[Rfam]
RNA sequence: AAUAAUAUUUGGCCAAAUUUCCAUGUGAAAAUGGGGGAACCAAUCUUUAGGGGUGAAUUUUACUUCGAAUCUUGGAUUGAAUUAUUUCCAGUGAUGAAGUGAAUAGGGCAACUGUGCAUGCCCGAAUCCGUCAGCUAACCUCGUAGGCCUUUGCAGCAGGAGCC
Numbered sequence: 001a002a003u004a005a006u007a008u009u010u011g012g013c014c015a016a017a018u019u020u021c022c023a024u025g026u027g028a029a030a031a032u033g034g035g036g037g038a039a040c041c042a043a044u045c046u047u048u049a050g051g052g053g054u055g056a057a058u059u060u061u062a063c064u065u066c067g068a069a070u071c072u073u074g075g076a077u078u079g080a081a082u083u084a085u086u087u088c089c090a091g092u093g094a095u096g097a098a099g100u101g102a103a104u105a106g107g108g109c110a111a112c113u114g115u116g117c118a119u120g121c122c123c124g125a126a127u128c129c130g131u132c133a134g135c136u137a138a139c140c141u142c143g144u145a146g147g148c149c150u151u152u153g154c155a156g157c158a159g160g161a162g163c164c
Stems, first nucleotide, its partner, number of pairs: 011149004018030003031144006041050001051129003059103009106123004
The record is a 164-nucleotide RNA from Paenibacillus anaericanus, which matches "c-di-AMP riboswitch aptamer (ydaO/yuaA leader)" in Rfam. NCBI's taxonomy places the organism under Bacteria, Bacillati, Bacillota, Paenibacillaceae, Paenibacillus. This family represents a conserved RNA structure found upstream of the ydaO and yuaA genes in Bacillus subtilis and related genes in other bacteria.